Rfam assigns this 172-nucleotide part of an RNA from Oryctes borbonicus to the family "Eukaryotic small subunit ribosomal RNA".
The family has 90 seed sequences and 75,755 matches in Rfam 15.1.
Taxonomically the source falls in Oryctes (Eukaryota, Hexapoda, Pterygota, Aparaglossata).
A search with the family's covariance model found it, with a score of 1753 bits.

Nucleotides: 172
Base pairs, nucleotide, nucleotide: 001139003136006132007131009129012125013124014123015122017120018119021116023115024114025113026112027111028110029109030108032106033105034104037101038100039099040098042096043095047091048090049089050088051087052086055081056080057079058078060076061075062074063073141164142163143162144161145160146159147158148157149156150155
Number, partner (000 for none) and nucleotide at each position: 001139c002000c003136g004000c005000c006132c007131g008000u009129c010000g011000c012125u013124a014123c015122u016000a017120c018119c019000g020000a021116u022000u023115g024114a025113a026112u027111g028110a029109u030108u031000u032106a033105g034104u035000g036000a037101g038100g039099u040098c041000u042096u043095c044000g045000g046000a047091c048090c049089g050088g051087u052086g053000c054000g055081c056080g057079g058078u059000u060076g061075c062074g063073u064000u065000a066000a067000g068000u069000u070000a071000c072000u073063a074062c075061g076060u077000c078058g079057c080056c081055g082000a083000u084000g085000u086052u087051g088050c089049u090048g091047g092000g093000a094000a095043g096042a097000u098040g099039a100038c101037c102000a103000a104034a105033c106032u107000u108030g109029a110028u111027c112026a113025u114024u115023u116021a117000g118000a119018g120017g121000a122015a123014g124013u125012a126000a127000a128000a129009g130000u131007c132006g133000u134000a135000a136003c137000a138000a139001g140000g141164u142163u143162u144161c145160c146159g147158u148157a149156g150155g151000u152000g153000a154000a155150c156149c157148u158147g159146c160145g161144g162143a163142a164141g165000g166000a167000u168000c169000a170000u171000u172000a